Source information: The record is a 76-nucleotide RNA from Xanthomonas albilineans, which matches "Xanthomonas sRNA sX9" in Rfam. It scores 47 bits against the family's covariance model. Lineage of the source: Bacteria > Pseudomonadati > Gammaproteobacteria > Xanthomonas > Xanthomonas albilineans. Rfam 15.1 lists 309 matches to the family in 52 species. The family's consensus secondary structure was predicted with RNAalifold.
RNA sequence: AUGUACCCGCUGUGUACUGCGGUUUCUGCGCGCUGUACGCGCCCACCCGACAGCAGCUGGCGACGCUUUGUUAGUA
Numbered sequence: 001a002u003g004u005a006c007c008c009g010c011u012g013u014g015u016a017c018u019g020c021g022g023u024u025u026c027u028g029c030g031c032g033c034u035g036u037a038c039g040c041g042c043c044c045a046c047c048c049g050a051c052a053g054c055a056g057c058u059g060g061c062g063a064c065g066c067u068u069u070g071u072u073a074g075u076a
Base pairs, nucleotide, nucleotide: 002016003015004014005013006012020035021034022033023032025030047074049072050071051070052069053068